[Rfam]
Nucleotides: 160
Base pairs, nucleotide, nucleotide: 003157005155006154007153008152009151010150011149012147013146014145015144017143018142019141032127033126034125035124037122040118041117042116057102058101059100061098062097063096065094070091072089073088074087075086076085077084078083
Number, partner (000 for none) and nucleotide at each position: 001000c002000g003157g004000u005155u006154u007153c008152u009151g010150g011149a012147g013146c014145g015144u016000g017143c018142g019141u020000c021000a022000g023000a024000c025000g026000a027000c028000a029000g030000c031000a032127u033126c034125c035124c036000g037122g038000c039000g040118a041117c042116c043000u044000u045000a046000c047000a048000u049000c050000u051000c052000u053000g054000a055000g056000a057102g058101g059100g060000a061098g062097c063096u064000a065094c066000c067000u068000c069000u070091g071000u072089c073088c074087g075086g076085g077084g078083c079000c080000g081000u082000g083078g084077c085076c086075c087074c088073g089072g090000u091070c092000a093000c094065g095000c096063g097062g098061c099000g100059c101058c102057c103000a104000c105000c106000u107000g108000g109000u110000u111000a112000u113000c114000c115000g116042g117041g118040u119000c120000a121000u122037c123000a124035g125034g126033g127032a128000u129000c130000g131000a132000u133000g134000u135000u136000c137000g138000u139000c140000g141019a142018c143017g144015g145014c146013g147012c148000a149011u150010c151009c152008g153007g154006a155005g156000c157003c158000g159000c160000c
Notes:
The record is a 160-nucleotide RNA from Marinicauda salina, which matches "6S / SsrS RNA" in Rfam. NCBI's taxonomy places the organism under Bacteria, Pseudomonadota, Maricaulales, Maricaulaceae, Marinicauda. A search with the family's covariance model found it, with a score of 60 bits. By type it is a non-coding RNA gene. The family has 150 seed sequences and 5,006 matches in Rfam 15.1.